[Rfam]
RNA sequence: AUCAUUCAUCAGGGGUCAUUGUAGAAGCGUGCUCGUCGCGUACCCUGCCAGCCCUUUUCAGGGCUGCAAUUCUACA
Numbered sequence: 001a002u003c004a005u006u007c008a009u010c011a012g013g014g015g016u017c018a019u020u021g022u023a024g025a026a027g028c029g030u031g032c033u034c035g036u037c038g039c040g041u042a043c044c045c046u047g048c049c050a051g052c053c054c055u056u057u058u059c060a061g062g063g064c065u066g067c068a069a070u071u072c073u074a075c076a
Stems, first nucleotide, its partner, number of pairs: 013045003017040001020076007027039003049066007
Mammalian CPEB3 ribozyme: a 76-nucleotide RNA sequence from Parnassius apollo. The family's consensus secondary structure is taken from published work.